[Rfam]
RNA: TPP riboswitch aptamer (THI element)
Organism: Thalassobaculum litoreum
RNA sequence: UCGCCACUUCGGGGGAGCCGCAUCCAGCGGCUGAGAGGUCCGAUCUUCGGACGACCCCAGGAACCUGAUCCGGUUUGUACCGGCGUAGGGAGCAAGGAGGCUUGCAUGC
Numbered sequence: 001u002c003g004c005c006a007c008u009u010c011g012g013g014g015g016a017g018c019c020g021c022a023u024c025c026a027g028c029g030g031c032u033g034a035g036a037g038g039u040c041c042g043a044u045c046u047u048c049g050g051a052c053g054a055c056c057c058c059a060g061g062a063a064c065c066u067g068a069u070c071c072g073g074u075u076u077g078u079a080c081c082g083g084c085g086u087a088g089g090g091a092g093c094a095a096g097g098a099g100g101c102u103u104g105c106a107u108g109c
Stems, first nucleotide, its partner, number of pairs: 007096003011058004017031005038052005064089004070083004